[Rfam]
A member of the RNA family "U8 small nucleolar RNA" from Acanthochromis polyacanthus, 132 nucleotides long. Lineage of the source: Eukaryota > Bilateria > Neoteleostei > Percomorphaceae > Acanthochromis.
RNA sequence: UUAUCAGUGAGGUAUAUCCUUACCUGUUGCUCCAUCCGUGGAGUUACAGAACAUGAUGAAUGGAGAAUCAUGAGAUAUGAUUAAUAUCUCCAUCUUUUGGGGAACAGCAACACCCCUUAAGACCAUUCUGAU
Dot-bracket structure: .......................(((.((((((......))))).))))......................((.((((....).))).))...(((..((((..........))))..)))...........

It scores 104 bits against the family's covariance model. Rfam links the family to the GO terms RNA processing and nucleolus. It is annotated as a C/D-box small nucleolar RNA.